Rfam assigns this 116-nucleotide RNA sequence to the family "pemK RNA".
RNA sequence: AUCAUGAUACUUCCGUCAAGUCCUAAAGCCGAGCGUGAAGCGGCAUAUCCGCCGCAAGCCGUCGCAGCAAAGGAGGGCGGCCCGGUGAGAACCACGGGGUGGUGAAAUUCCAAUGA
Numbered sequence: 001a002u003c004a005u006g007a008u009a010c011u012u013c014c015g016u017c018a019a020g021u022c023c024u025a026a027a028g029c030c031g032a033g034c035g036u037g038a039a040g041c042g043g044c045a046u047a048u049c050c051g052c053c054g055c056a057a058g059c060c061g062u063c064g065c066a067g068c069a070a071a072g073g074a075g076g077g078c079g080g081c082c083c084g085g086u087g088a089g090a091a092c093c094a095c096g097g098g099g100u101g102g103u104g105a106a107a108u109u110c111c112a113a114u115g116a
Stems, first nucleotide, its partner, number of pairs: 012113001013080004081099003085095003100112003
The base pairs follow the family's consensus structure, which is taken from published work.